[Rfam]
RNA: TPP riboswitch aptamer (THI element)
RNA sequence: GUCGAUCUAACGGGGUGCUUUGCUUCAAGCGCGUCAGGUGGAUGGGAGAAUUGCUCCUUUUCGAUCCUGACACGCUCUUAAGCUUAGCUGAGAGGCGUAACGCCAACCCGCGGAACCUGAUCCGGUUAACACCGGCGGAGGGAUUAGACGGCUCUUCAUC
Numbered sequence: 001g002u003c004g005a006u007c008u009a010a011c012g013g014g015g016u017g018c019u020u021u022g023c024u025u026c027a028a029g030c031g032c033g034u035c036a037g038g039u040g041g042a043u044g045g046g047a048g049a050a051u052u053g054c055u056c057c058u059u060u061u062c063g064a065u066c067c068u069g070a071c072a073c074g075c076u077c078u079u080a081a082g083c084u085u086a087g088c089u090g091a092g093a094g095g096c097g098u099a100a101c102g103c104c105a106a107c108c109c110g111c112g113g114a115a116c117c118u119g120a121u122c123c124g125g126u127u128a129a130c131a132c133c134g135g136c137g138g139a140g141g142g143a144u145u146a147g148a149c150g151g152c153u154c155u156u157c158a159u160c
Stems, first nucleotide, its partner, number of pairs: 006148005011110004017088003095103003116141003122135004